Background
The record is a 61-nucleotide RNA from Astyanax mexicanus, which matches "mir-728 microRNA precursor family" in Rfam. Taxonomically the source falls in Astyanax (Eukaryota, Chordata, Vertebrata, Ostariophysi). It scores 73 bits against the family's covariance model. Its family is annotated with RISC complex and miRNA-mediated post-transcriptional gene silencing in the Gene Ontology.
[Rfam]
RNA sequence: AAAUGUAGUUGACUAUAAGUAUACGUUGGACUUGGGAGUAUACUAAGUUCACUACGUUUUC
Numbered sequence: 001a002a003a004u005g006u007a008g009u010u011g012a013c014u015a016u017a018a019g020u021a022u023a024c025g026u027u028g029g030a031c032u033u034g035g036g037a038g039u040a041u042a043c044u045a046a047g048u049u050c051a052c053u054a055c056g057u058u059u060u061c
Stems, first nucleotide, its partner, number of pairs: 001059009012048003018044007